[Rfam]
RNA: U4atac minor spliceosomal RNA
Organism: Pogona vitticeps
RNA sequence: ACCAUCCUUAUCUUGGGGUUGCGCUACUGUUCAAUGAACGCUUAGUGAGGACAGUACUGCUAACGCCACCGCAACACAUAAGCAUCCCUGGGGUUUAUGCCCCACUGAGGUGCAAUUUUUGGAACC
Numbered sequence: 001a002c003c004a005u006c007c008u009u010a011u012c013u014u015g016g017g018g019u020u021g022c023g024c025u026a027c028u029g030u031u032c033a034a035u036g037a038a039c040g041c042u043u044a045g046u047g048a049g050g051a052c053a054g055u056a057c058u059g060c061u062a063a064c065g066c067c068a069c070c071g072c073a074a075c076a077c078a079u080a081a082g083c084a085u086c087c088c089u090g091g092g093g094u095u096u097a098u099g100c101c102c103c104a105c106u107g108a109g110g111u112g113c114a115a116u117u118u119u120u121g122g123a124a125c126c
Stems, first nucleotide, its partner, number of pairs: 006018004021060003026055007038046002082113005089104006